Overview:
This 255-nucleotide RNA sequence from Ictidomys tridecemlineatus belongs to the Rfam family "Small nucleolar RNA SNORD17". The base pairs follow the family's consensus structure, which was predicted with RNAalifold. By type it is a C/D-box small nucleolar RNA. The sequence is in the family's curated seed alignment.
RNA sequence: GUGAAAUGAUGAUUCAGUUUAUCCAUUCGGCUGAGUGUGCUGCAUUGACCUUCUUCCCAAGCCUCAGUUCCUGUUCUAAGAAACUUUUGGUGCUAUGUAGCCUCCAAAUGCCCUGGCAGAUCUGCAAUGGUCUAUUGCAGAUUGCUUGUGUGGUGGUAGCCCAUCUGAUAAAAAGUGGCUUGAUGUCUACAAAGAAUGAUGCCCAUGUGUGGUUCGAAUUUUUACCCAGAUGAGUGGGGGGCAAAUCUAGAUCAU
Numbered sequence: 001g002u003g004a005a006a007u008g009a010u011g012a013u014u015c016a017g018u019u020u021a022u023c024c025a026u027u028c029g030g031c032u033g034a035g036u037g038u039g040c041u042g043c044a045u046u047g048a049c050c051u052u053c054u055u056c057c058c059a060a061g062c063c064u065c066a067g068u069u070c071c072u073g074u075u076c077u078a079a080g081a082a083a084c085u086u087u088u089g090g091u092g093c094u095a096u097g098u099a100g101c102c103u104c105c106a107a108a109u110g111c112c113c114u115g116g117c118a119g120a121u122c123u124g125c126a127a128u129g130g131u132c133u134a135u136u137g138c139a140g141a142u143u144g145c146u147u148g149u150g151u152g153g154u155g156g157u158a159g160c161c162c163a164u165c166u167g168a169u170a171a172a173a174a175g176u177g178g179c180u181u182g183a184u185g186u187c188u189a190c191a192a193a194g195a196a197u198g199a200u201g202c203c204c205a206u207g208u209g210u211g212g213u214u215c216g217a218a219u220u221u222u223u224a225c226c227c228a229g230a231u232g233a234g235u236g237g238g239g240g241g242c243a244a245a246u247c248u249a250g251a252u253c254a255u
Stems, first nucleotide, its partner, number of pairs: 010254005017246004023237007031229002035225002039190001042187001043185006049178002051175002054172002057167001060094003064090003067084003071080002097164002100161001102159002110151002112148001116145002119143011192223006198215002202212002